The family of this 36-nucleotide sequence from Aureibaculum marinum is "S16-Flavobacteria ribosomal protein leader". The base pairs follow the family's consensus structure, which is taken from published work.

RNA sequence: AUUAAUAAUCAAGGUCGUGUACCUUAAACAAUUAAC
Number, nucleotide and partner (000 for none) at each position: 001a000002u035003u034004a033005a032006u031007a000008a000009u000010c000011a025012a024013g023014g022015u021016c000017g000018u000019g000020u000021a015022c014023c013024u012025u011026a000027a000028a000029c000030a000031a006032u005033u004034a003035a002036c000